RNA sequence: UUGACCGCCCUGGAGACUGAAGUCCUGUAUUUAUCCACAGAGCAGACACUGCGGCGCGGGCAGCGGCAGUGCCAGCUUCGCCCACUCUGCCCCUCCGCCAGCGGGCGUCCCCCCCGACAUGGAGGAGCCGCCGCUAAAGGUGAGAGGGGUAGUUCAGUCUCCACGCCCGCUCAAUCCUCGGCUCCU
Numbered sequence: 001u002u003g004a005c006c007g008c009c010c011u012g013g014a015g016a017c018u019g020a021a022g023u024c025c026u027g028u029a030u031u032u033a034u035c036c037a038c039a040g041a042g043c044a045g046a047c048a049c050u051g052c053g054g055c056g057c058g059g060g061c062a063g064c065g066g067c068a069g070u071g072c073c074a075g076c077u078u079c080g081c082c083c084a085c086u087c088u089g090c091c092c093c094u095c096c097g098c099c100a101g102c103g104g105g106c107g108u109c110c111c112c113c114c115c116g117a118c119a120u121g122g123a124g125g126a127g128c129c130g131c132c133g134c135u136a137a138a139g140g141u142g143a144g145a146g147g148g149g150u151a152g153u154u155c156a157g158u159c160u161c162c163a164c165g166c167c168c169g170c171u172c173a174a175u176c177c178u179c180g181g182c183u184c185c186u
Stems, first nucleotide, its partner, number of pairs: 002173003007166002011163011024149003028145001030144006038116001040114001042112001048108001054106002057103001058099002065091005120136003124132002
Rfam assigns this 186-nucleotide RNA from Dipodomys ordii to the family "TUC338". NCBI's taxonomy places the organism under Eukaryota, Chordata, Teleostomi, Eutheria, Dipodomys. The literature on the family includes a 2011 paper in Proc Natl Acad Sci U S A by Braconi et al., "Expression and functional role of a transcribed noncoding RNA with an ultraconserved element in hepatocellular carcinoma". Pairs were carried over by alignment from the consensus structure, which was predicted with WAR.